The family of this 126-nucleotide sequence from Myotis lucifugus is "Small nucleolar RNA SNORA25". Gene Ontology terms of the family: nucleolus and RNA processing.
RNA sequence: AUGUCAUUUAAAAAGAACUUAUGUAAUCAAAACCAGGAGCUCUUAAUGCUGUGGCCUAAGAUUGAAGUUCUUUAUAGGAUGUAAUAGAUAGUCAAUAGUGCUAUGUUUGCCUGAGGAGAUAUAAGA
Number, nucleotide and partner (000 for none) at each position: 001a000002u000003g055004u054005c053006a052007u051008u000009u000010a000011a000012a000013a044014a043015g042016a041017a000018c039019u038020u037021a000022u036023g000024u000025a000026a000027u000028c000029a000030a000031a000032a000033c000034c000035a000036g022037g020038a019039g018040c000041u016042c015043u014044u013045a000046a000047u000048g000049c000050u000051g007052u006053g005054g004055c003056c000057u000058a000059a000060g000061a000062u000063u000064g000065a000066a000067g000068u000069u119070c118071u117072u116073u115074a000075u000076a112077g111078g110079a000080u000081g000082u000083a000084a104085u103086a102087g101088a000089u100090a099091g000092u097093c000094a000095a000096u000097a092098g000099u090100g089101c087102u086103a085104u084105g000106u000107u000108u000109g000110c078111c077112u076113g000114a000115g073116g072117a071118g070119a069120u000121a000122u000123a000124a000125g000126a000